[Rfam]
RNA sequence: GAGGAUUUAGCUUAAUUAAAGUGGUUGAUUUGCAUUCAAUUGAUGUAAGGUGUAGUCUUGCAAUCCUUA
Numbered sequence: 001g002a003g004g005a006u007u008u009a010g011c012u013u014a015a016u017u018a019a020a021g022u023g024g025u026u027g028a029u030u031u032g033c034a035u036u037c038a039a040u041u042g043a044u045g046u047a048a049g050g051u052g053u054a055g056u057c058u059u060g061c062a063a064u065c066c067u068u069a
Base pairs, nucleotide, nucleotide: 001068002067003066004065005064006063007062010022011021012020013019024040025039026038027037028036045061046060047059048058049057
Shown here is a 69-nucleotide RNA sequence, a member of the family "tRNA".
The family's consensus secondary structure is taken from published work.
Rfam's curators put it in the seed alignment.
Rfam classes the family as a transfer RNA.